[Rfam]
RNA sequence: CAGCAAGUUUCCAAGGGCUUUGGCUGAGUUAUGGUCAUGGGAUCCCCAACUGUAUCACAGAAUGAAAUGGAGACAUUCUGACAGCUCAGGUCAGCACAGUACCUGUGGCUGUUAGUAUCUUUCUUAGAAGG
Number, nucleotide and partner (000 for none) at each position: 001c000002a000003g000004c000005a000006a000007g000008u000009u000010u000011c040012c039013a000014a000015g000016g036017g035018c034019u033020u000021u031022g030023g000024c000025u000026g000027a000028g000029u000030u022031a021032u000033g019034g018035u017036c016037a000038u000039g012040g011041g000042a000043u000044c000045c000046c000047c000048a000049a000050c000051u000052g000053u000054a000055u000056c000057a000058c000059a000060g000061a000062a000063u000064g000065a000066a000067a000068u000069g124070g123071a122072g121073a120074c000075a000076u000077u000078c000079u000080g000081a000082c000083a000084g112085c111086u000087c105088a104089g103090g102091u000092c000093a000094g000095c000096a000097c000098a000099g000100u000101a000102c090103c089104u088105g087106u000107g000108g000109c000110u000111g085112u084113u000114a000115g000116u000117a000118u000119c000120u073121u072122u071123c070124u069125u000126a000127g000128a000129a000130g000131g000
Description:
Small nucleolar RNA SNORA44: a 131-nucleotide RNA from Rattus norvegicus. A reference for the family is Huttenhofer et al. (2001), "RNomics: an experimental approach that identifies 201 candidates for novel, small, non-messenger RNAs in mouse", EMBO J. Pairs were carried over by alignment from the consensus structure, which was predicted with PFOLD. Gene Ontology terms of the family: nucleolus and RNA processing. The family's RNA type in Rfam is H/ACA-box small nucleolar RNA. NCBI's taxonomy places the organism under Eukaryota, Vertebrata, Gnathostomata, Amniota, Rattus.